[Rfam]
The record is a 340-nucleotide RNA sequence from Enterocloster bolteae, which matches "transfer-messenger RNA" in Rfam. By type it is a non-coding RNA gene. A reference for the family is Williams and Bartel (1996), "Phylogenetic analysis of tmRNA secondary structure", RNA.
RNA sequence: GGGGUUGUACUGGUUUCGACGGGGGUCAUGCAGCUGGUGAAGCUAUCCCCAUGCGAUGGGUUAAAUGGCAAAAAUAAAUAUAAACGCUAACGACGAAUUAGCAAUCGCUGCCUAAUGGCAGCUGUCAGACUUAGAGCACCCGCACUUUAAGACCCUGGCAUCGACUAUGUGGGAAACGACGUAUGCAAAGCUUUGAGCAUAUGGGCGUAUGAUGAAGCUACUGAAACCAUCCGGGUGUCCUUUCUCUGAUGGCAGAGGGAAUGUCAAAUAAAGGACUAUGAUAGUAGAAGAACAGGGAAUUGAUUUUCGGACAGGGGUUCGAUUCCCCUCAGCUCCACUC
Numbered sequence: 001g002g003g004g005u006u007g008u009a010c011u012g013g014u015u016u017c018g019a020c021g022g023g024g025g026u027c028a029u030g031c032a033g034c035u036g037g038u039g040a041a042g043c044u045a046u047c048c049c050c051a052u053g054c055g056a057u058g059g060g061u062u063a064a065a066u067g068g069c070a071a072a073a074a075u076a077a078a079u080a081u082a083a084a085c086g087c088u089a090a091c092g093a094c095g096a097a098u099u100a101g102c103a104a105u106c107g108c109u110g111c112c113u114a115a116u117g118g119c120a121g122c123u124g125u126c127a128g129a130c131u132u133a134g135a136g137c138a139c140c141c142g143c144a145c146u147u148u149a150a151g152a153c154c155c156u157g158g159c160a161u162c163g164a165c166u167a168u169g170u171g172g173g174a175a176a177c178g179a180c181g182u183a184u185g186c187a188a189a190g191c192u193u194u195g196a197g198c199a200u201a202u203g204g205g206c207g208u209a210u211g212a213u214g215a216a217g218c219u220a221c222u223g224a225a226a227c228c229a230u231c232c233g234g235g236u237g238u239c240c241u242u243u244c245u246c247u248g249a250u251g252g253c254a255g256a257g258g259g260a261a262u263g264u265c266a267a268a269u270a271a272a273g274g275a276c277u278a279u280g281a282u283a284g285u286a287g288a289a290g291a292a293c294a295g296g297g298a299a300u301u302g303a304u305u306u307u308c309g310g311a312c313a314g315g316g317g318u319u320c321g322a323u324u325c326c327c328c329u330c331a332g333c334u335c336c337a338c339u340c
Stems, first nucleotide, its partner, number of pairs: 001336007020309009034295003038291001043284005048060005107122005123160006130151007139173006180203007189219006221258002227252004233246003237276004241271002313329005